Source information: Small nucleolar RNA U49: a 65-nucleotide sequence from Tetracentron sinense. Rfam links the family to the GO terms RNA processing and nucleolus. A search with the family's covariance model found it, with a score of 56 bits. The family's RNA type in Rfam is C/D-box small nucleolar RNA. The base pairs follow the family's consensus structure, which was predicted with CMfinder.
RNA sequence: AUCCAAUGAGGAAGCAAUCCCUUUUGAUAGGAAGUGCCGUAUGACAUUCAAACAGCAGCGAUUAC
Numbered sequence: 001a002u003c004c005a006a007u008g009a010g011g012a013a014g015c016a017a018u019c020c021c022u023u024u025u026g027a028u029a030g031g032a033a034g035u036g037c038c039g040u041a042u043g044a045c046a047u048u049c050a051a052a053c054a055g056c057a058g059c060g061a062u063u064a065c
Base pairs, nucleotide, nucleotide: 014059015058031049032048033047035046036045